[Rfam]
RNA sequence: CUAGCACUUUCACAGGCCCCCCCUUGACUGUUGGACUAGGAUUUGGUAGCUGAUGCUGAGAGAAAACUUGAUUGGAUCCUUGCCCUGGAAUUGUACCAGUGGCAGCUGUCACUCAGUGGAACAGAG
Numbered sequence: 001c002u003a004g005c006a007c008u009u010u011c012a013c014a015g016g017c018c019c020c021c022c023c024u025u026g027a028c029u030g031u032u033g034g035a036c037u038a039g040g041a042u043u044u045g046g047u048a049g050c051u052g053a054u055g056c057u058g059a060g061a062g063a064a065a066a067c068u069u070g071a072u073u074g075g076a077u078c079c080u081u082g083c084c085c086u087g088g089a090a091u092u093g094u095a096c097c098a099g100u101g102g103c104a105g106c107u108g109u110c111a112c113u114c115a116g117u118g119g120a121a122c123a124g125a126g
Stems, first nucleotide, its partner, number of pairs: 003057004008052001013045003018040002022034002067118001068116004073111002076109002080105005085099004
Rfam assigns this 126-nucleotide RNA from Castor canadensis to the family "Small nucleolar RNA SNORA30/SNORA37 family".
The members of this family belong to the H/ACA class of snoRNAs that guide the sites of modification of uridines to pseudouridines. This family includes human ACA30 (SNORA30), ACA37 (SNORA37) and the mouse homolog MBI-26. Both ACA37 and ACA30 are predicted to guide the pseudouridylation of residue U4643 of 28S rRNA.
The family has 11 seed sequences and 407 matches in Rfam 15.1.
By type it is an H/ACA-box small nucleolar RNA.
It scores 99 bits against the family's covariance model.